[Rfam]
Annotation
Rfam assigns this 121-nucleotide sequence from Vibrio metschnikovii to the family "Vibrio RNA AS5". The organism belongs to Vibrio metschnikovii, within Bacteria.

RNA sequence: CUAUACCCAAACAACUUGGAGUUGCAGGUAGGCGGCAAGUGAGUUCAUCCCCAUGAGCAUAGACGGGCUAUGUGAUUGGGGUGAACGAACGCAGCCCCCCUGCAGCUUCAAGUAGGAAGGG
Numbered sequence: 001c002u003a004u005a006c007c008c009a010a011a012c013a014a015c016u017u018g019g020a021g022u023u024g025c026a027g028g029u030a031g032g033c034g035g036c037a038a039g040u041g042a043g044u045u046c047a048u049c050c051c052c053a054u055g056a057g058c059a060u061a062g063a064c065g066g067g068c069u070a071u072g073u074g075a076u077u078g079g080g081g082u083g084a085a086c087g088a089a090c091g092c093a094g095c096c097c098c099c100c101u102g103c104a105g106c107u108u109c110a111a112g113u114a115g116g117a118a119g120g121g
Stems, first nucleotide, its partner, number of pairs: 002120001004118001006116002014113015034096003039092003043086005049080002053076002

From the family's description: Identified by direct cloning an parallel sequencing experiments with 5S/tRNA depletion. Confirmed by Northern blot. The sequence is in the family's curated seed alignment. Rfam classes the family as an antisense RNA. The family has 3 seed sequences and 43 matches in Rfam 15.1. The base pairs follow the family's consensus structure, which was predicted with RNAfold.